Shown here is a 52-nucleotide RNA sequence from Neomonachus schauinslandi, a member of the family "mir-1302 microRNA precursor family". The match comes from Rfam's covariance-model search (62 bits).
RNA sequence: UUUUUAUUAUAAAUAUGUCCCAUUCAAUAUUUGGGAUAUAUUUAUAUUGAAA
Number, nucleotide and partner (000 for none) at each position: 001u000002u000003u000004u000005u000006a048007u000008u046009a045010u044011a043012a042013a000014u040015a039016u038017g000018u036019c035020c034021c033022a031023u000024u000025c000026a000027a000028u000029a000030u000031u022032u000033g021034g020035g019036a018037u000038a016039u015040a014041u000042u012043u011044a010045u009046a008047u000048u006049g000050a000051a000052a000